Group II catalytic intron D1-D4-3: a 176-nucleotide RNA from Rhodoferax sediminis.
The match comes from Rfam's covariance-model search (47 bits).

[Rfam]
RNA sequence: GUGAGGGCGGCCGAGCGUGGGAUGAAGCACGUAACGUAAACCGCGAGUUGAAGAACACGAAGCGCAUAUGAGGCGACACCGAGCAGGGCGAGCAAGCCAAUGAUUGCGAAGCCCUUGUGGUCAAGGCGAGGUGGCGCAACAGCCGCAUGCGCCUGAACCGCGUGAUGCCGAUCGCC
Numbered sequence: 001g002u003g004a005g006g007g008c009g010g011c012c013g014a015g016c017g018u019g020g021g022a023u024g025a026a027g028c029a030c031g032u033a034a035c036g037u038a039a040a041c042c043g044c045g046a047g048u049u050g051a052a053g054a055a056c057a058c059g060a061a062g063c064g065c066a067u068a069u070g071a072g073g074c075g076a077c078a079c080c081g082a083g084c085a086g087g088g089c090g091a092g093c094a095a096g097c098c099a100a101u102g103a104u105u106g107c108g109a110a111g112c113c114c115u116u117g118u119g120g121u122c123a124a125g126g127c128g129a130g131g132u133g134g135c136g137c138a139a140c141a142g143c144c145g146c147a148u149g150c151g152c153c154u155g156a157a158c159c160g161c162g163u164g165a166u167g168c169c170g171a172u173c174g175c176c
Base pairs, nucleotide, nucleotide: 001016002015005012006011030174031173035170036169040163041162043161044160045159048155050153062152063151064150065149066148067147073137074136075135077133078132079131080130083127086114087113088112089111092107093106094105095104